[Rfam]
RNA sequence: CAUACUUCCCAAACACUCUGGCCCUUACCCCCGUUCCCUUGAGGAUCGGUUCAAUCUGUGGUAUAGGCCUAUUUUUGGAGGAAGAAGAUUGAUUUUUCGUCCGGUUACUCACCGAGGUAUCUUGGAUCCUUUCGAGGGUCGUGGAUAUUUUGGUCCAUAUCUUUGGGCGACAU
Dot-bracket structure: ......(((..........((((..((((.(((.(((.....))).)))..........))))..))))..........)))................((((.........((((.((((((....................)))))).))))...........)))).....

The family of this 173-nucleotide RNA from Sclerotinia borealis is "Small nucleolar RNA snR80". A search with the family's covariance model found it, with a score of 51 bits. Its Rfam clan is "SNORA28 clan". Rfam links the family to the GO terms nucleolus and RNA processing.